[Rfam]
RNA sequence: UAUCGCUCCAACAGCAUAUUGUCAUGUGAUGACAAAUAGUAGUAAGCGAAGAAUCCGAGCCUCAGCAAAAGCACCUUUUAAAGGUUGGAAAGCUGAAACAUAACAAUGCAGGUAGAGAUUGGUAGGUUAGUUCUCGAACAUCUUAGACCUG
Numbered sequence: 001u002a003u004c005g006c007u008c009c010a011a012c013a014g015c016a017u018a019u020u021g022u023c024a025u026g027u028g029a030u031g032a033c034a035a036a037u038a039g040u041a042g043u044a045a046g047c048g049a050a051g052a053a054u055c056c057g058a059g060c061c062u063c064a065g066c067a068a069a070a071g072c073a074c075c076u077u078u079u080a081a082a083g084g085u086u087g088g089a090a091a092g093c094u095g096a097a098a099c100a101u102a103a104c105a106a107u108g109c110a111g112g113u114a115g116a117g118a119u120u121g122g123u124a125g126g127u128u129a130g131u132u133c134u135c136g137a138a139c140a141u142c143u144u145a146g147a148c149c150u151g
Stems, first nucleotide, its partner, number of pairs: 003049005012042001014040002019035005051061001062096005073085005109151005115144005125134002
RT-3 RNA: a 151-nucleotide RNA. The family's RNA type in Rfam is small RNA. It is one of the family's seed sequences. The family's consensus secondary structure is taken from published work.